[Rfam]
RNA sequence: AACAACACCUGCGGGAGCUCGCACCAAGCGCGGGCUGAGAGGGCGACGCCGGGUCGCCGACCGCCUGAACCUGACCGGGUAAUGCCGGCGUAGGGAGCGGGUCGAUCAUGACC
Numbered sequence: 001a002a003c004a005a006c007a008c009c010u011g012c013g014g015g016a017g018c019u020c021g022c023a024c025c026a027a028g029c030g031c032g033g034g035c036u037g038a039g040a041g042g043g044c045g046a047c048g049c050c051g052g053g054u055c056g057c058c059g060a061c062c063g064c065c066u067g068a069a070c071c072u073g074a075c076c077g078g079g080u081a082a083u084g085c086c087g088g089c090g091u092a093g094g095g096a097g098c099g100g101g102u103c104g105a106u107c108a109u110g111a112c113c
Base pairs, nucleotide, nucleotide: 007102008101009100010099011064012063013062014061017035018034019033020032021031042058043057044056045055046054070094071093072092073091075088076087077086078085